[Rfam]
RNA sequence: ACGCCGAAAGGAGGUGGUCCGAACAAUGGUUGAUCAUAGUUGGGCUAGCGAGGUGGCUGUCCGCUAGGACGCCCCAGCUUCCGGACUCUGUCCGGACGUCUGGCGACGUUCGGCGAAUCCACGACAAUCACCGGAACCCCGGGCUGCCAGAGGGCGGGAAGUCCCUUCCCGUCUUUGGUCCAUCUGGCCCUUCCGCUCCGCGGAAGGAACAGGCCCGGGGUUCUUCCUUU
Numbered sequence: 001a002c003g004c005c006g007a008a009a010g011g012a013g014g015u016g017g018u019c020c021g022a023a024c025a026a027u028g029g030u031u032g033a034u035c036a037u038a039g040u041u042g043g044g045c046u047a048g049c050g051a052g053g054u055g056g057c058u059g060u061c062c063g064c065u066a067g068g069a070c071g072c073c074c075c076a077g078c079u080u081c082c083g084g085a086c087u088c089u090g091u092c093c094g095g096a097c098g099u100c101u102g103g104c105g106a107c108g109u110u111c112g113g114c115g116a117a118u119c120c121a122c123g124a125c126a127a128u129c130a131c132c133g134g135a136a137c138c139c140c141g142g143g144c145u146g147c148c149a150g151a152g153g154g155c156g157g158g159a160a161g162u163c164c165c166u167u168c169c170c171g172u173c174u175u176u177g178g179u180c181c182a183u184c185u186g187g188c189c190c191u192u193c194c195g196c197u198c199c200g201c202g203g204a205a206g207g208a209a210c211a212g213g214c215c216c217g218g219g220g221u222u223c224u225u226c227c228u229u230u
Base pairs, nucleotide, nucleotide: 013061014060015059016058017057018056062115063114064113065112067110068109070108071107073105075102076101077100133224134223135222136221137220138219139218140217141216142215143214144213145212148206
Dot-bracket structure: ............((((((.....................................))))))((((.((.((.(.(((......................)))..).)))).)))).................(((((((((((((..(.........................................................).....)))))))))))))......